RNA sequence: GUAGGAUAUGGAGACAUGGUUCCCACGACCAUCGGUGGCAAGAUUGUAGGGUCCUUGUGUGCCAUCGCUGGUGUGUUGACCAUUGCAUUGCCUGUGCCUGUUAUAGUGUCCAAC
Numbered sequence: 001g002u003a004g005g006a007u008a009u010g011g012a013g014a015c016a017u018g019g020u021u022c023c024c025a026c027g028a029c030c031a032u033c034g035g036u037g038g039c040a041a042g043a044u045u046g047u048a049g050g051g052u053c054c055u056u057g058u059g060u061g062c063c064a065u066c067g068c069u070g071g072u073g074u075g076u077u078g079a080c081c082a083u084u085g086c087a088u089u090g091c092c093u094g095u096g097c098c099u100g101u102u103a104u105a106g107u108g109u110c111c112a113a114c
Base pairs, nucleotide, nucleotide: 001114002113004111005110007108008107009106011104013102014101015100016099018097021094037077038076039075040074049063050062

The record is a 114-nucleotide RNA from Astyanax mexicanus, which matches "Potassium channel RNA editing signal" in Rfam. From the family's description: This family represents a group of sequences related to the human potassium channel Kv1.1 hairpin element which directs the efficient modification of an adenosine to inosine by an adenosine deaminase acting on RNA (ADAR). The ADAR modification causes an isoleucine/valine recoding event which lies in the ion-conducting pore of the potassium channel. It is thought that this editing event targets the process of fast inactivation and allows a more rapid recovery from inactivation at negative potentials. It is annotated as a cis-regulatory element. It scores 109 bits against the family's covariance model. Lineage of the source: Eukaryota > Craniata > Actinopterygii > Otomorpha > Astyanax. Pairs were carried over by alignment from the consensus structure, which is taken from published work.